The family of this 93-nucleotide sequence from Streptomyces mashuensis is "che1 RNA".
Taxonomically the source falls in Streptomyces (Bacteria, Actinomycetota, Kitasatosporales, Streptomycetaceae).
The base pairs follow the family's consensus structure, which is taken from published work.
The match comes from Rfam's covariance-model search (80 bits).
RNA sequence: GGUACAGGGGGGUUCCCGCCGCGGCGGGACCUGUGCCGGCUCAGCGGUUGCGCGAAGGCGUGGCCAGUGGUUGUCGCUCGGGGGUGAACGCCG
Numbered sequence: 001g002g003u004a005c006a007g008g009g010g011g012g013u014u015c016c017c018g019c020c021g022c023g024g025c026g027g028g029a030c031c032u033g034u035g036c037c038g039g040c041u042c043a044g045c046g047g048u049u050g051c052g053c054g055a056a057g058g059c060g061u062g063g064c065c066a067g068u069g070g071u072u073g074u075c076g077c078u079c080g081g082g083g084g085u086g087a088a089c090g091c092c093g
Stems, first nucleotide, its partner, number of pairs: 001037008014029006046065008